Nucleotides: 123
Stems, first nucleotide, its partner, number of pairs: 001123005007117001009115013023101005029095003033091002036088004041083002045079004
Number, partner (000 for none) and nucleotide at each position: 001123a002122a003121u004120a005119g006000a007117a008000u009115a010114a011113u012112g013111a014110c015109a016108g017107a018106u019105u020104a021103g022000a023101u024100u025099u026098u027097u028000u029095c030094u031093c032000c033091u034090g035000a036088u037087u038086u039085u040000u041083a042082g043000u044000u045079u046078u047077u048076u049000c050000c051000u052000c053000c054000u055000u056000a057000a058000a059000a060000c061000a062000u063000u064000c065000a066000a067000a068000u069000c070000c071000a072000a073000c074000u075000a076048a077047a078046a079045a080000u081000g082042c083041u084000a085039a086038a087037a088036a089000g090034c091033a092000a093031g094030a095029g096000g097027a098026a099025a100024a101023a102000c103021c104020u105019g106018a107017u108016u109015u110014g111013u112012c113011a114010u115009u116000c117007u118000c119005c120004u121003a122002u123001u
Rfam assigns this 123-nucleotide sequence from Gossypium gossypioides to the family "MIR7504 microRNA precursor family". The organism belongs to Gossypium, within Eukaryota. The base pairs follow the family's consensus structure, which was predicted with RNAalifold.